RNA sequence: GGCCUCCCUCUUUGGGGCGAUCCAUCAUGGAGUCCCCUCAUCGAUUGCCCCACAGAGGGUGGCC
Dot-bracket structure: ((((.((((((.((((((((((.((.(.((....)).).)).)))))))))).)))))).))))
Numbered sequence: 001g002g003c004c005u006c007c008c009u010c011u012u013u014g015g016g017g018c019g020a021u022c023c024a025u026c027a028u029g030g031a032g033u034c035c036c037c038u039c040a041u042c043g044a045u046u047g048c049c050c051c052a053c054a055g056a057g058g059g060u061g062g063c064c
Stems, first nucleotide, its partner, number of pairs: 001064004006059006013052010024041002027038001029036002

This 64-nucleotide RNA from Myotis lucifugus belongs to the Rfam family "mir-9242 microRNA precursor family". NCBI's taxonomy places the organism under Eukaryota, Opisthokonta, Chordata, Vertebrata, Myotis. Pairs were carried over by alignment from the consensus structure, which was predicted with RNAalifold.